[Rfam]
RNA sequence: ACUUCAUCCAGAGAAGCUGAGGGAACGGCCCUGUGACGCUUCGGCAACCACCGUUCAUGCGGAAGGUGCCAAUUCCGGCCGGUGUGUGAUCACCGGGUAGAUGAGGA
Number, nucleotide and partner (000 for none) at each position: 001a000002c106003u105004u104005c103006a102007u101008c100009c000010a000011g000012a000013g042014a041015a040016g039017c038018u000019g000020a000021g031022g030023g029024a000025a000026c077027g076028g075029c023030c022031c021032u000033g000034u000035g000036a000037c000038g017039c016040u015041u014042c013043g070044g069045c068046a067047a000048c066049c065050a000051c062052c061053g060054u000055u000056c000057a000058u000059g000060c053061g052062g051063a000064a000065g049066g048067u046068g045069c044070c043071a000072a000073u000074u099075c028076c027077g026078g000079c096080c095081g094082g093083u092084g091085u000086g000087u000088g000089a000090u000091c084092a083093c082094c081095g080096g079097g000098u000099a074100g008101a007102u006103g005104a004105g003106g002107a000

The family of this 107-nucleotide RNA from Stackebrandtia endophytica is "SAM riboswitch aptamer (S box leader)". Rfam describes the family as follows. The SAM riboswitch is found upstream of a number of genes which code for proteins involved in methionine or cysteine biosynthesis in Gram-positive bacteria. A search with the family's covariance model found it, with a score of 90 bits.